RNA sequence: GGUUGAUGUGAUGAUAAGCCUUAACAGAAACACCAGUGUUGACUCAAAAUACAGACUACAAUUAUCUGAUCAACU
Numbered sequence: 001g002g003u004u005g006a007u008g009u010g011a012u013g014a015u016a017a018g019c020c021u022u023a024a025c026a027g028a029a030a031c032a033c034c035a036g037u038g039u040u041g042a043c044u045c046a047a048a049a050u051a052c053a054g055a056c057u058a059c060a061a062u063u064a065u066c067u068g069a070u071c072a073a074c075u
Base pairs, nucleotide, nucleotide: 001075002074003073004072005071006070

Rfam assigns this 75-nucleotide sequence from Paspalum vaginatum to the family "Small nucleolar RNA Z155". Lineage of the source: Eukaryota > Liliopsida > Poales > Panicoideae > Paspalum. On this family, see Chen et al., Nucleic Acids Res 2003: "The high diversity of snoRNAs in plants: identification and comparative study of 120 snoRNA genes from Oryza sativa". Gene Ontology terms of the family: RNA processing and nucleolus. Pairs were carried over by alignment from the consensus structure.